[Rfam]
RNA sequence: UGGUUAUAAGGAAGAGUGGAGAGAUCGGGCUCCGAGAAACUCUGGCAACCCUCUGUUCAACAAUGGAAACGGUGCCAAAACCCGGCCGGAAACGGAAUUAUAAUUG
Numbered sequence: 001u002g003g004u005u006a007u008a009a010g011g012a013a014g015a016g017u018g019g020a021g022a023g024a025u026c027g028g029g030c031u032c033c034g035a036g037a038a039a040c041u042c043u044g045g046c047a048a049c050c051c052u053c054u055g056u057u058c059a060a061c062a063a064u065g066g067a068a069a070c071g072g073u074g075c076c077a078a079a080a081c082c083c084g085g086c087c088g089g090a091a092a093c094g095g096a097a098u099u100a101u102a103a104u105u106g
Stems, first nucleotide, its partner, number of pairs: 001106008013043005021032003026085001028083001029081001044076004049072002052067003080098001086095003
Source information
This 106-nucleotide RNA sequence from Sunxiuqinia elliptica belongs to the Rfam family "SAM riboswitch aptamer (S box leader)". The SAM riboswitch is found upstream of a number of genes which code for proteins involved in methionine or cysteine biosynthesis in Gram-positive bacteria. Its family is annotated with regulation of gene expression in the Gene Ontology. Taxonomically the source falls in Sunxiuqinia (Bacteria, Pseudomonadati, Bacteroidota, Prolixibacteraceae).